[Rfam]
RNA sequence: UAAGACGAUCCAGACAGCGCGUUUUUUAGUCCUGUUUCAGGUCAUUAACCUUGAAUAUUUGAGGAAUGACCUCAUUUUAAUCUCCAGUAGCAUUUGACCUGUAAUGGGAGGAAUUAUGCGUCUGGAUCGUCUUAC
Numbered sequence: 001u002a003a004g005a006c007g008a009u010c011c012a013g014a015c016a017g018c019g020c021g022u023u024u025u026u027u028a029g030u031c032c033u034g035u036u037u038c039a040g041g042u043c044a045u046u047a048a049c050c051u052u053g054a055a056u057a058u059u060u061g062a063g064g065a066a067u068g069a070c071c072u073c074a075u076u077u078u079a080a081u082c083u084c085c086a087g088u089a090g091c092a093u094u095u096g097a098c099c100u101g102u103a104a105u106g107g108g109a110g111g112a113a114u115u116a117u118g119c120g121u122c123u124g125g126a127u128c129g130u131c132u133u134a135c
Stems, first nucleotide, its partner, number of pairs: 002133014017119003021115001023113001024040002028036002049064006065076004081111005087105002

A member of the RNA family "Yersinia sRNA 155(RyfD)" from Pantoea ananatis, 135 nucleotides long.
The base pairs follow the family's consensus structure.